Notes
Shown here is an 89-nucleotide sequence from Fukomys damarensis, a member of the family "Small nucleolar RNA SNORD70". Rfam describes the family as follows. snoRNA HBII-234 belongs to the C/D family of snoRNAs. It is the human orthologue of the mouse MBII-234 and is predicted to guide 2'O-ribose methylation of the small 18S rRNA on position A512. It is hosted, together with HBII-95, by the core C/D box snoRNA protein encoding gene NOP5/NOP58.
RNA sequence: UUCAUUGUUGUCAGUGAUAUGUCCCUGUUGGAACUGAAUCUAACUGGUCUAACUCAAAUAUUCGUCGCUACCACUGAGGCAACAAUGAA
Dot-bracket structure: ((((((((((((.................................................................))))))))))))
Numbered sequence: 001u002u003c004a005u006u007g008u009u010g011u012c013a014g015u016g017a018u019a020u021g022u023c024c025c026u027g028u029u030g031g032a033a034c035u036g037a038a039u040c041u042a043a044c045u046g047g048u049c050u051a052a053c054u055c056a057a058a059u060a061u062u063c064g065u066c067g068c069u070a071c072c073a074c075u076g077a078g079g080c081a082a083c084a085a086u087g088a089a
Stems, first nucleotide, its partner, number of pairs: 001089012